Small nucleolar RNA SNORD26: a 71-nucleotide RNA from Cyclopterus lumpus.
RNA sequence: CUACAGUGAUGUUGUAUUUGAACUCUCUUACUGAAAAUUGUGUGGAAACUUCAUCUAAAAUUCUGAGUAGC
Numbered sequence: 001c002u003a004c005a006g007u008g009a010u011g012u013u014g015u016a017u018u019u020g021a022a023c024u025c026u027c028u029u030a031c032u033g034a035a036a037a038u039u040g041u042g043u044g045g046a047a048a049c050u051u052c053a054u055c056u057a058a059a060a061u062u063c064u065g066a067g068u069a070g071c
Stems, first nucleotide, its partner, number of pairs: 001070004